[Rfam]
RNA sequence: UCACCAUCCAGAGCGACCGAGAGACCUGGCUCGUCGACGUCGCAGCAACCCGCCUCGAGUUCGAGUGUGUGGGUGCUACCGCCAGGACCGAUGGAGG
Numbered sequence: 001u002c003a004c005c006a007u008c009c010a011g012a013g014c015g016a017c018c019g020a021g022a023g024a025c026c027u028g029g030c031u032c033g034u035c036g037a038c039g040u041c042g043c044a045g046c047a048a049c050c051c052g053c054c055u056c057g058a059g060u061u062c063g064a065g066u067g068u069g070u071g072g073g074u075g076c077u078a079c080c081g082c083c084a085g086g087a088c089c090g091a092u093g094g095a096g097g
Stems, first nucleotide, its partner, number of pairs: 001097002004094005013043005021032003026085004044077004049073002051069003081089001
SAM riboswitch aptamer (S box leader): a 97-nucleotide RNA from Rhodococcus sp. Leaf258.